[Rfam]
Shown here is a 101-nucleotide RNA from Tenebrionibacter intestinalis, a member of the family "Gammaprotebacteria rimP leader". Rfam links the family to the GO term regulation of gene expression. Taxonomically the source falls in Tenebrionibacter (Bacteria, Pseudomonadati, Enterobacterales, Enterobacteriaceae).
RNA sequence: UUCUCCCGGAAGGUAUACAGGGUUCAGUUAUAUAACGCCCCGAUUUAUCGGGGUUUUUUGUUAUCUGACGUGAGAAUAACUGGGCUUUUUGCCCUUUUUUU
Number, nucleotide and partner (000 for none) at each position: 001u000002u000003c000004u000005c000006c000007c000008g000009g000010a000011a000012g000013g000014u000015a000016u000017a000018c000019a000020g000021g000022g000023u000024u000025c000026a000027g000028u000029u000030a000031u000032a000033u000034a057035a056036c000037g054038c053039c052040c051041c050042g049043a000044u000045u000046u000047a000048u000049c042050g041051g040052g039053g038054u037055u000056u035057u034058u000059u000060g000061u000062u000063a000064u000065c000066u000067g000068a000069c000070g000071u000072g000073a000074g000075a000076a000077u000078a000079a000080c000081u000082g094083g093084g092085c091086u000087u000088u000089u000090u000091g085092c084093c083094c082095u000096u000097u000098u000099u000100u000101u000